[Rfam]
RNA: Small nucleolar RNA snR80
RNA sequence: AUGCCCUUGGCUACACUCUGAAAUAUACCUACUCGCAAUGGUAUAUUUCAAUUUUUGUCCAAGGAAGAAUGACUUUACUUGAUGGCUCUAUACUCACCCCAACACUCUGGCGAUUUUGCCUGUGGGUGUAGGGGUCCAUUAAUUUGGCCUACAU
Numbered sequence: 001a002u003g004c005c006c007u008u009g010g011c012u013a014c015a016c017u018c019u020g021a022a023a024u025a026u027a028c029c030u031a032c033u034c035g036c037a038a039u040g041g042u043a044u045a046u047u048u049c050a051a052u053u054u055u056u057g058u059c060c061a062a063g064g065a066a067g068a069a070u071g072a073c074u075u076u077a078c079u080u081g082a083u084g085g086c087u088c089u090a091u092a093c094u095c096a097c098c099c100c101a102a103c104a105c106u107c108u109g110g111c112g113a114u115u116u117u118g119c120c121u122g123u124g125g126g127u128g129u130a131g132g133g134g135u136c137c138a139u140u141a142a143u144u145u146g147g148c149c150u151a152c153a154u
Stems, first nucleotide, its partner, number of pairs: 007062003019050006026043004084149004097134004102129003106126003